About this RNA:
Rfam assigns this 104-nucleotide RNA from Lactuca saligna to the family "Small nucleolar RNA Z279/snoR105/snoR108". The family is grouped with related families in Rfam's "snoU13 clan". On this family, see Marker et al., Curr Biol 2002: "Experimental RNomics: identification of 140 candidates for small non-messenger RNAs in the plant Arabidopsis thaliana". Gene Ontology terms of the family: nucleolus and RNA processing.
RNA sequence: GGGAAGUGAUGAGUGGUCAUUGCUCGCAAUUAAACAUGCGAGAUGGGGUGCCUGCCUAAAGCUUUACGACAAUUAGGCGCCUCCAAUUUUAACCAUCUGAUCCC
Number, nucleotide and partner (000 for none) at each position: 001g104002g103003g102004a101005a000006g000007u000008g000009a000010u000011g000012a000013g000014u095015g094016g093017u092018c000019a000020u000021u000022g000023c042024u041025c040026g039027c038028a000029a000030u000031u000032a000033a000034a000035c000036a000037u000038g027039c026040g025041a024042g023043a000044u000045g083046g082047g081048g080049u079050g078051c077052c076053u000054g000055c000056c000057u000058a000059a000060a000061g000062c000063u000064u072065u000066a000067c000068g000069a000070c000071a000072a064073u000074u000075a000076g052077g051078c050079g049080c048081c047082u046083c045084c000085a000086a000087u000088u000089u000090u000091a000092a017093c016094c015095a014096u000097c000098u000099g000100a000101u004102c003103c002104c001